[Rfam]
RNA sequence: UUUUUUUUUUUUUUGCUGCAAUAGUCUCAUAACAAUACAAGCAGUUAUAUGCAUGGGAUAAAAUAAUAUUGGGACAUUGUAAAUUGAAAGGAAGUAACCAUUUUCAUCUUUUCUGCAUGGACAAGACAUUA
Numbered sequence: 001u002u003u004u005u006u007u008u009u010u011u012u013u014u015g016c017u018g019c020a021a022u023a024g025u026c027u028c029a030u031a032a033c034a035a036u037a038c039a040a041g042c043a044g045u046u047a048u049a050u051g052c053a054u055g056g057g058a059u060a061a062a063a064u065a066a067u068a069u070u071g072g073g074a075c076a077u078u079g080u081a082a083a084u085u086g087a088a089a090g091g092a093a094g095u096a097a098c099c100a101u102u103u104u105c106a107u108c109u110u111u112u113c114u115g116c117a118u119g120g121a122c123a124a125g126a127c128a129u130u131a
Base pairs, nucleotide, nucleotide: 003058004057005056006055008053015045016044017043018042019041022037023036025035069125070124072122075119076118078117079116080115081114086110087109089107091104092103093102094101095100
Dot-bracket structure: ..((((.(......(((((..((.(.........)))...))))).......).))))..........((.(..((.((((....((.(.(((((....)))))..).))...))))))..).))......